[Rfam]
RNA: RtT RNA
RNA sequence: AUAUCGCACAUGGAGUGCGGGUGAGAAGCUGCGUUCAGGUUCGAGCCGAGUGGAGCGAGACAGCGUUGCGCUUGCGCAACGACCCGAAGGGCGAGGCCGUAGGCCGAGUCAUCCUGCACGACCCACCA
Numbered sequence: 001a002u003a004u005c006g007c008a009c010a011u012g013g014a015g016u017g018c019g020g021g022u023g024a025g026a027a028g029c030u031g032c033g034u035u036c037a038g039g040u041u042c043g044a045g046c047c048g049a050g051u052g053g054a055g056c057g058a059g060a061c062a063g064c065g066u067u068g069c070g071c072u073u074g075c076g077c078a079a080c081g082a083c084c085c086g087a088a089g090g091g092c093g094a095g096g097c098c099g100u101a102g103g104c105c106g107a108g109u110c111a112u113c114c115u116g117c118a119c120g121a122c123c124c125a126c127c128a
Stems, first nucleotide, its partner, number of pairs: 015119007022111001032093002035091002040088004047057002064081006